[Rfam]
RNA sequence: UAGGUUUACUUCUUUUUAGAGCUACUAAAUAUUUUUAUAUAAGGCAAAACCUUCAAAUUGCGGGAAGUUCUUAAAGACAAAUCUACCAAAUUAAUACAGUAAUGUAAUUAAUGGAACAGGUAAUGACUCGUUGUAUGGUAAAAACGAUUUGUAUGAAGAAAUGAAAUAGAUAAUCCGCAGCCAAGCACCUUACCGCCUAGCCGUUAGGCUAGGCGAUAAGGUGUGCUGUUCAUCGACUAAAUGUGGGUUGGUAAAAUAAUAAGCUUUUUCUUAAAAAACUAACCUUAAAUAUUUUUUUUUUUCCUUUUAGCUUUAAAUAAAAUCUUUUUUUUAUUAAAUCGCCCCGUCUCCCGCCUUACGGCGAUUCGAUGAGACGACCCUAAGGAGACAGAAGUUUUAAGUCACAUAAGUUUAUUAUUCUUGCUUAAGAUAUAGUCAGGCAUAGCCGAGAGGUUAUG
Numbered sequence: 001u002a003g004g005u006u007u008a009c010u011u012c013u014u015u016u017u018a019g020a021g022c023u024a025c026u027a028a029a030u031a032u033u034u035u036u037a038u039a040u041a042a043g044g045c046a047a048a049a050c051c052u053u054c055a056a057a058u059u060g061c062g063g064g065a066a067g068u069u070c071u072u073a074a075a076g077a078c079a080a081a082u083c084u085a086c087c088a089a090a091u092u093a094a095u096a097c098a099g100u101a102a103u104g105u106a107a108u109u110a111a112u113g114g115a116a117c118a119g120g121u122a123a124u125g126a127c128u129c130g131u132u133g134u135a136u137g138g139u140a141a142a143a144a145c146g147a148u149u150u151g152u153a154u155g156a157a158g159a160a161a162u163g164a165a166a167u168a169g170a171u172a173a174u175c176c177g178c179a180g181c182c183a184a185g186c187a188c189c190u191u192a193c194c195g196c197c198u199a200g201c202c203g204u205u206a207g208g209c210u211a212g213g214c215g216a217u218a219a220g221g222u223g224u225g226c227u228g229u230u231c232a233u234c235g236a237c238u239a240a241a242u243g244u245g246g247g248u249u250g251g252u253a254a255a256a257u258a259a260u261a262a263g264c265u266u267u268u269u270c271u272u273a274a275a276a277a278a279c280u281a282a283c284c285u286u287a288a289a290u291a292u293u294u295u296u297u298u299u300u301u302u303c304c305u306u307u308u309a310g311c312u313u314u315a316a317a318u319a320a321a322a323u324c325u326u327u328u329u330u331u332u333a334u335u336a337a338a339u340c341g342c343c344c345c346g347u348c349u350c351c352c353g354c355c356u357u358a359c360g361g362c363g364a365u366u367c368g369a370u371g372a373g374a375c376g377a378c379c380c381u382a383a384g385g386a387g388a389c390a391g392a393a394g395u396u397u398u399a400a401g402u403c404a405c406a407u408a409a410g411u412u413u414a415u416u417a418u419u420c421u422u423g424c425u426u427a428a429g430a431u432a433u434a435g436u437c438a439g440g441c442a443u444a445g446c447c448g449a450g451a452g453g454u455u456a457u458g
Base pairs, nucleotide, nucleotide: 003023004022005021006020007019029038030037031036048249049248050247051246052245054243055242059179060178061177062176063175064174069170070169071168180229181228185224186223187222188221192217194215195214196213197212198211199210200209233438235437236436237435238434239433251424252423253422254421256419259416443456444455445454446453447452
The family of this 458-nucleotide sequence from Psilocybe cubensis is "Group I catalytic intron". From the family's description: Group I catalytic introns are large self-splicing ribozymes. They catalyse their own excision from mRNA, tRNA and rRNA precursors in a wide range of organisms. The core secondary structure consists of 9 paired regions (P1-P9). These fold to essentially two domains - the P4-P6 domain (formed from the stacking of P5, P4, P6 and P6a helices) and the P3-P9 domain (formed from the P8, P3, P7 and P9 helices).